The record is a 131-nucleotide RNA from Holothuria leucospilota, which matches "Phenylalanine leader peptide" in Rfam. Rfam classes the family as a cis-regulatory leader. For this family Rfam cites "Two groups of phenylalanine biosynthetic operon leader peptides genes: a high level of apparently incidental frameshifting in decoding Escherichia coli pheL" (Gurvich et al., Nucleic Acids Res, 2010). It scores 69 bits against the family's covariance model. The organism belongs to Holothuria, within Eukaryota. The family has 71 seed sequences and 379 matches in Rfam 15.1.

RNA sequence: AAAUUUUUUUAAAUUUUUUUUUUGGGGUUUUUUUUUCCCCCUUUCCAACCCCCGGGGGGGGGCCCCCCGGGGGGAAAAAAAACCCCAAAAAAGGAAACCCCCCCCCCCAAAAAAAUGGGGGGUUUUUUUUU
Numbered sequence: 001a002a003a004u005u006u007u008u009u010u011a012a013a014u015u016u017u018u019u020u021u022u023u024g025g026g027g028u029u030u031u032u033u034u035u036u037c038c039c040c041c042u043u044u045c046c047a048a049c050c051c052c053c054g055g056g057g058g059g060g061g062g063c064c065c066c067c068c069g070g071g072g073g074g075a076a077a078a079a080a081a082a083c084c085c086c087a088a089a090a091a092a093g094g095a096a097a098c099c100c101c102c103c104c105c106c107c108c109a110a111a112a113a114a115a116u117g118g119g120g121g122g123u124u125u126u127u128u129u130u131u
Base pairs, nucleotide, nucleotide: 016094017093018092019091021089022088023087024086025085026084027083028082029081030080031079032078033077034076036074037073038072039071043057044056045055046054058068059067060066061065095125096124097123098122099121100120101119102118103117